[Rfam]
RNA sequence: AUGAAUACAAGGGGAGAGAUUAUUUAUAGCUACGUAUUAAAAGCUAUAAAUAACGCCGAAGGAGCAAGCGUUAACACGUGAAUCUCUCAGGCAAAAAGACUCUUGUAGGACG
Numbered sequence: 001a002u003g004a005a006u007a008c009a010a011g012g013g014g015a016g017a018g019a020u021u022a023u024u025u026a027u028a029g030c031u032a033c034g035u036a037u038u039a040a041a042a043g044c045u046a047u048a049a050a051u052a053a054c055g056c057c058g059a060a061g062g063a064g065c066a067a068g069c070g071u072u073a074a075c076a077c078g079u080g081a082a083u084c085u086c087u088c089a090g091g092c093a094a095a096a097a098g099a100c101u102c103u104u105g106u107a108g109g110a111c112g
Base pairs, nucleotide, nucleotide: 006107007106008105009104010103011102012101013100020053021052022051023050024049025048026047027046028045029044030043031042055092056091057090058088059087062086063085064084068079069078
RNA: Glycine riboswitch aptamer
Organism: Ornithinibacillus caprae